[Rfam]
RNA sequence: CGCGCAGCAGGACGGAAAGACCCCGGGACCUUUACUAUAGCUUGGUAUUGGUGUGUGGUGCGGUUUGUGUAGGAUAGGUGGGAGGCUGUGAAGCUGUCACGCUAGUGGUGGUGGAGUCGUUGGUGAAAUACCACUCUGGUCGUAGCGCGCAUCUAACUGUGGUCCGUGAUCCGGGCCCGGGACAGUGCCUGGUGGGUAGUUUAACUGGGGCGGUUGCCUCCUAAAGGGUAACGGAGGCGCUCAAAGGUUCCCUCAGCCUGGUUGGCAAUCAGGUGGUGAGUGUAAGUGCACAAGGGGGCUUGACUGUGAGACUGACGGGUCGAGCAGGGACGAAAGUCGGAACUAGUGAUCCGGCGGUGGCUUGUGGAAGCGCCGUCGCUCAACGGAUAAAAGGUACCCCGGGGAUAACAGGCUGAUCUUGCCCAAGAGUUCAUAUCGACGGCAUGGUUUGGCACCUCGAUGUCGGCUCGUCGCAUCCUGGGGCUGGAGUAGGUCCCAAGGGUUGGGCUGUUCGCCCAUUAAAGCGGUACGCGAGCUGGGUUCAGAACGUCGUGAGACAGUUCGGUCCCUAUCCGCUGCGCGCGUUG
Numbered sequence: 001c002g003c004g005c006a007g008c009a010g011g012a013c014g015g016a017a018a019g020a021c022c023c024c025g026g027g028a029c030c031u032u033u034a035c036u037a038u039a040g041c042u043u044g045g046u047a048u049u050g051g052u053g054u055g056u057g058g059u060g061c062g063g064u065u066u067g068u069g070u071a072g073g074a075u076a077g078g079u080g081g082g083a084g085g086c087u088g089u090g091a092a093g094c095u096g097u098c099a100c101g102c103u104a105g106u107g108g109u110g111g112u113g114g115a116g117u118c119g120u121u122g123g124u125g126a127a128a129u130a131c132c133a134c135u136c137u138g139g140u141c142g143u144a145g146c147g148c149g150c151a152u153c154u155a156a157c158u159g160u161g162g163u164c165c166g167u168g169a170u171c172c173g174g175g176c177c178c179g180g181g182a183c184a185g186u187g188c189c190u191g192g193u194g195g196g197u198a199g200u201u202u203a204a205c206u207g208g209g210g211c212g213g214u215u216g217c218c219u220c221c222u223a224a225a226g227g228g229u230a231a232c233g234g235a236g237g238c239g240c241u242c243a244a245a246g247g248u249u250c251c252c253u254c255a256g257c258c259u260g261g262u263u264g265g266c267a268a269u270c271a272g273g274u275g276g277u278g279a280g281u282g283u284a285a286g287u288g289c290a291c292a293a294g295g296g297g298g299c300u301u302g303a304c305u306g307u308g309a310g311a312c313u314g315a316c317g318g319g320u321c322g323a324g325c326a327g328g329g330a331c332g333a334a335a336g337u338c339g340g341a342a343c344u345a346g347u348g349a350u351c352c353g354g355c356g357g358u359g360g361c362u363u364g365u366g367g368a369a370g371c372g373c374c375g376u377c378g379c380u381c382a383a384c385g386g387a388u389a390a391a392a393g394g395u396a397c398c399c400c401g402g403g404g405a406u407a408a409c410a411g412g413c414u415g416a417u418c419u420u421g422c423c424c425a426a427g428a429g430u431u432c433a434u435a436u437c438g439a440c441g442g443c444a445u446g447g448u449u450u451g452g453c454a455c456c457u458c459g460a461u462g463u464c465g466g467c468u469c470g471u472c473g474c475a476u477c478c479u480g481g482g483g484c485u486g487g488a489g490u491a492g493g494u495c496c497c498a499a500g501g502g503u504u505g506g507g508c509u510g511u512u513c514g515c516c517c518a519u520u521a522a523a524g525c526g527g528u529a530c531g532c533g534a535g536c537u538g539g540g541u542u543c544a545g546a547a548c549g550u551c552g553u554g555a556g557a558c559a560g561u562u563c564g565g566u567c568c569c570u571a572u573c574c575g576c577u578g579c580g581c582g583c584g585u586u587g
Stems, first nucleotide, its partner, number of pairs: 001582008010574003014569002022403006028395005034200004041192002044189004050153008059144007067136001077135005084118003093112008157180003161177006203215004216238006239384001241341002247299006253279002256274006280289002304327004310321003329338003352378007360371002412453003416450001417447002420444004427437002464539001465537004469531001470528005477502002480497006504518005545563004549558003
The family of this 587-nucleotide part of an RNA from Actinobaculum sp. 352 is "Bacterial large subunit ribosomal RNA". Pairs were carried over by alignment from the consensus structure, which is taken from published work. NCBI's taxonomy places the organism under Bacteria, Bacillati, Actinomycetes, Actinomycetaceae, Actinobaculum. It scores 2516 bits against the family's covariance model.